The family of this 82-nucleotide sequence from Gulo gulo is "Small nucleolar RNA SNORD35". From the family's description: U35 is a C/D box snoRNA located in intron 6 of ribosomal protein L13A and intron 3 of ribosomal protein S11 in humans and at homologous positions in mouse and chicken ribosomal protein genes. The source organism's lineage runs through Eukaryota, Dipnotetrapodomorpha, Boreoeutheria, Carnivora and Gulo. The family is grouped with related families in Rfam's "SNORD35 clan". The family's consensus secondary structure was predicted with PFOLD.
Nucleotides: 082
Base pairs, nucleotide, nucleotide: 001077002076003075004074
Number, partner (000 for none) and nucleotide at each position: 001077g002076g003075c004074a005000g006000a007000u008000g009000u010000c011000u012000u013000u014000u015000c016000a017000a018000g019000a020000u021000g022000g023000u024000c025000u026000u027000c028000a029000g030000a031000c032000g033000c034000u035000c036000a037000c038000c039000a040000u041000g042000g043000g044000c045000a046000u047000g048000u049000u050000g051000a052000g053000a054000a055000g056000g057000c058000c059000a060000u061000u062000u063000g064000u065000c066000a067000c068000a069000g070000c071000c072000a073000a074004u075003g076002u077001c078000a079000g080000c081000a082000a